[Rfam]
RNA sequence: GAGUCUAACAUGUAUGCGAGUUGGCGGGUGGAAACCCCGUAAGCGCAAGUAACCUGACUGGUGGGAUGGCUUAUAAGCCUGCACCAUCGACCGACCAUGUUGCUUCUGCGAAAGGUUUGAGUGCGAGCAUACCUGUUGGGACCCGAAAGAUGGUGAACUAUGCCUGAGCAGGGUGAAGCCAGAGGAAACUCUGGUGGAGGCUCGUAGAUGUGCUGACGUGCAAAUCGCUUUCCGGACUUGGGUAUAGGGGCGAAAGACUAAUCGAACCAUCUAGUAGCUGGUU
Numbered sequence: 001g002a003g004u005c006u007a008a009c010a011u012g013u014a015u016g017c018g019a020g021u022u023g024g025c026g027g028g029u030g031g032a033a034a035c036c037c038c039g040u041a042a043g044c045g046c047a048a049g050u051a052a053c054c055u056g057a058c059u060g061g062u063g064g065g066a067u068g069g070c071u072u073a074u075a076a077g078c079c080u081g082c083a084c085c086a087u088c089g090a091c092c093g094a095c096c097a098u099g100u101u102g103c104u105u106c107u108g109c110g111a112a113a114g115g116u117u118u119g120a121g122u123g124c125g126a127g128c129a130u131a132c133c134u135g136u137u138g139g140g141a142c143c144c145g146a147a148a149g150a151u152g153g154u155g156a157a158c159u160a161u162g163c164c165u166g167a168g169c170a171g172g173g174u175g176a177a178g179c180c181a182g183a184g185g186a187a188a189c190u191c192u193g194g195u196g197g198a199g200g201c202u203c204g205u206a207g208a209u210g211u212g213c214u215g216a217c218g219u220g221c222a223a224a225u226c227g228c229u230u231u232c233c234g235g236a237c238u239u240g241g242g243u244a245u246a247g248g249g250g251c252g253a254a255a256g257a258c259u260a261a262u263c264g265a266a267c268c269a270u271c272u273a274g275u276a277g278c279u280g281g282u283u
Stems, first nucleotide, its partner, number of pairs: 005139006012132006020044003025039004048055002060088005068079002090122002092119003095115002102109002142281002145278001149271006158247011169235001171203004178195007207232002210229001212228002215226002249259002